[Rfam]
RNA sequence: AGCCUAAACCUUUAGAAAUAAAGGCACGGCGAAGAAAGUCAGAACAUGCAUAAAGAACCCAUCAUGGGGUCGCAUGUUCUGCCGUAUCGGGAAACUGAUAUGAGUGGCGCAAGCCACU
Numbered sequence: 001a002g003c004c005u006a007a008a009c010c011u012u013u014a015g016a017a018a019u020a021a022a023g024g025c026a027c028g029g030c031g032a033a034g035a036a037a038g039u040c041a042g043a044a045c046a047u048g049c050a051u052a053a054a055g056a057a058c059c060c061a062u063c064a065u066g067g068g069g070u071c072g073c074a075u076g077u078u079c080u081g082c083c084g085u086a087u088c089g090g091g092a093a094a095c096u097g098a099u100a101u102g103a104g105u106g107g108c109g110c111a112a113g114c115c116a117c118u
Base pairs, nucleotide, nucleotide: 002030003029004028009024010023011022012021013020014019040081041080042079043078044077045076046075047074048073049072055071056070058068059067060066083102084101085100086099087098088097089096090095103118104117105116106115107114108113

A member of the RNA family "LOOT RNA", 118 nucleotides long. The sequence is in the family's curated seed alignment. Rfam classes the family as a small RNA.